[Rfam]
RNA sequence: AUAGAUAUUGAUAAAGUUACUCAUAUAUACCUUGAAUACGGCAAGGAGUCUCUACCGGGAACCUUAAAUUUCCGACUAUGGGUGAAAUUUUUAUGUGU
Numbered sequence: 001a002u003a004g005a006u007a008u009u010g011a012u013a014a015a016g017u018u019a020c021u022c023a024u025a026u027a028u029a030c031c032u033u034g035a036a037u038a039c040g041g042c043a044a045g046g047a048g049u050c051u052c053u054a055c056c057g058g059g060a061a062c063c064u065u066a067a068a069u070u071u072c073c074g075a076c077u078a079u080g081g082g083u084g085a086a087a088u089u090u091u092u093a094u095g096u097g098u
Stems, first nucleotide, its partner, number of pairs: 018084008030046005056074006
This 98-nucleotide RNA sequence from Clostridium acetireducens belongs to the Rfam family "Purine riboswitch aptamer". The source organism's lineage runs through Bacteria, Bacillati, Clostridia, Eubacteriales and Clostridium acetireducens.